UnaL2 LINE 3' element: a 54-nucleotide RNA sequence from Sinocyclocheilus rhinocerous.
Rfam 15.1 lists 493,311 matches to the family in 99 species.
The family's consensus secondary structure is taken from published work.
By type it is a cis-regulatory element.
The match comes from Rfam's covariance-model search (63 bits).
Its family is annotated with transposition, RNA-mediated in the Gene Ontology.
RNA sequence: AAACAAACCAUUUGUAAGUCGCUUUGGAUAAAAGCGUCUGCUAAAUGAUUAAAU
Number, nucleotide and partner (000 for none) at each position: 001a000002a000003a000004c000005a000006a000007a000008c000009c000010a000011u000012u000013u043014g041015u040016a039017a000018g000019u000020c036021g035022c034023u033024u032025u031026g000027g000028a000029u000030a000031a025032a024033a023034g022035c021036g020037u000038c000039u016040g015041c014042u000043a013044a000045a000046u000047g000048a000049u000050u000051a000052a000053a000054u000